[Rfam]
RNA sequence: CACCGGCGAUUGAUUACGCCGAGGGUCUGGCAACCGGCCUGUCCCCCGCCAUGUCAGACUUGGACAAAGGCCUAUCCCCCUCUCCGGGCCUUUGUCCCCCCUUUGAAGCCGCCAUGGUCCCACCUCCAGACCAUGGCGGCUUUUC
Numbered sequence: 001c002a003c004c005g006g007c008g009a010u011u012g013a014u015u016a017c018g019c020c021g022a023g024g025g026u027c028u029g030g031c032a033a034c035c036g037g038c039c040u041g042u043c044c045c046c047c048g049c050c051a052u053g054u055c056a057g058a059c060u061u062g063g064a065c066a067a068a069g070g071c072c073u074a075u076c077c078c079c080c081u082c083u084c085c086g087g088g089c090c091u092u093u094g095u096c097c098c099c100c101c102u103u104u105g106a107a108g109c110c111g112c113c114a115u116g117g118u119c120c121c122a123c124c125u126c127c128a129g130a131c132c133a134u135g136g137c138g139g140c141u142u143u144u145c
Stems, first nucleotide, its partner, number of pairs: 026058007036050003062097011106141001109139011
Background: Shown here is a 145-nucleotide sequence from Rhizobium sp. SEMIA4064, a member of the family "Alphaproteobacterial sRNA ar7". The source organism's lineage runs through Bacteria, Pseudomonadota, Hyphomicrobiales, Rhizobiaceae and Rhizobium.